[Rfam]
RNA: Bacterial small signal recognition particle RNA
Organism: Candidatus Rhabdochlamydia sp. T3358
RNA sequence: CCGGGGAUCUUUUGGAACUGCAGAGUCUGAACUAGGUCAGAACUGGAAAGUAGCAGCCUUAAGGAAUUUCUGUUGUGCUAGAAAUUAAUCUCCGGCAU
Numbered sequence: 001c002c003g004g005g006g007a008u009c010u011u012u013u014g015g016a017a018c019u020g021c022a023g024a025g026u027c028u029g030a031a032c033u034a035g036g037u038c039a040g041a042a043c044u045g046g047a048a049a050g051u052a053g054c055a056g057c058c059u060u061a062a063g064g065a066a067u068u069u070c071u072g073u074u075g076u077g078c079u080a081g082a083a084a085u086u087a088a089u090c091u092c093c094g095g096c097a098u
Base pairs, nucleotide, nucleotide: 004092005091006090007089008088010084011083012082013081017076018075020073021072022071023068024067026065027064028063034059035058036057037056042051043050044049